[Rfam]
RNA: c-di-AMP riboswitch aptamer (ydaO/yuaA leader)
RNA sequence: GCGGGACCGUCGCCUAAUCGUCCAUGGACGAACCGGGGAACCGAGUACCCGGGGUGAAUCCGCGAAAGCGGUAGGGAUCACUUCCAUCCCGAACCCGUCAGCUAACCCGGUCGGCGACCAACGGAAGGAUCC
Numbered sequence: 001g002c003g004g005g006a007c008c009g010u011c012g013c014c015u016a017a018u019c020g021u022c023c024a025u026g027g028a029c030g031a032a033c034c035g036g037g038g039a040a041c042c043g044a045g046u047a048c049c050c051g052g053g054g055u056g057a058a059u060c061c062g063c064g065a066a067a068g069c070g071g072u073a074g075g076g077a078u079c080a081c082u083u084c085c086a087u088c089c090c091g092a093a094c095c096c097g098u099c100a101g102c103u104a105a106c107c108c109g110g111u112c113g114g115c116g117a118c119c120a121a122c123g124g125a126a127g128g129a130u131c132c
Base pairs, nucleotide, nucleotide: 011116012115013114014113018031019030020029032111033110034109035108036107037106042051043050052096053095054094060071061070062069063068074090075089076088077087